The family of this 76-nucleotide sequence from bacterium HR32 is "c-di-GMP-I-GGC riboswitch aptamer". For this family Rfam cites "Structural basis of ligand binding by a c-di-GMP riboswitch" (Smith et al., Nat Struct Mol Biol, 2009). Rfam 15.1 lists 1,298 matches to the family in 717 species.
RNA sequence: CCGCGAAAGGGCAAACCCGCGGUGACGCGGGGGCGCAAAGCCACGGGGCUCAGACGAGCCAGCCGGGCUGCCGAAG
Numbered sequence: 001c002c003g004c005g006a007a008a009g010g011g012c013a014a015a016c017c018c019g020c021g022g023u024g025a026c027g028c029g030g031g032g033g034c035g036c037a038a039a040g041c042c043a044c045g046g047g048g049c050u051c052a053g054a055c056g057a058g059c060c061a062g063c064c065g066g067g068c069u070g071c072c073g074a075a076g
Stems, first nucleotide, its partner, number of pairs: 001076001011036002016031006034062001039069004044065003047060003